[Rfam]
RNA sequence: CGGCGAAGCUUUCUGUCCGUUAUCCAAGAAAGCACUCGGUUGUGCUGUGGGAAACACUGAUUUCCUUAGACGCGUUCGUCGUCAAGAGCAUGAUGUGAGGACGGGUUAGAUGCCCA
Numbered sequence: 001c002g003g004c005g006a007a008g009c010u011u012u013c014u015g016u017c018c019g020u021u022a023u024c025c026a027a028g029a030a031a032g033c034a035c036u037c038g039g040u041u042g043u044g045c046u047g048u049g050g051g052a053a054a055c056a057c058u059g060a061u062u063u064c065c066u067u068a069g070a071c072g073c074g075u076u077c078g079u080c081g082u083c084a085a086g087a088g089c090a091u092g093a094u095g096u097g098a099g100g101a102c103g104g105g106u107u108a109g110a111u112g113c114c115c116a
Stems, first nucleotide, its partner, number of pairs: 001019003008033006035099004039094008049066006069083004103115004
This 116-nucleotide RNA from Bacillus sp. MUM 13 belongs to the Rfam family "epsC RNA". Rfam classes the family as a cis-regulatory element. A search with the family's covariance model found it, with a score of 91 bits. The organism belongs to Bacillus, within Bacteria. Pairs were carried over by alignment from the consensus structure, which is taken from published work.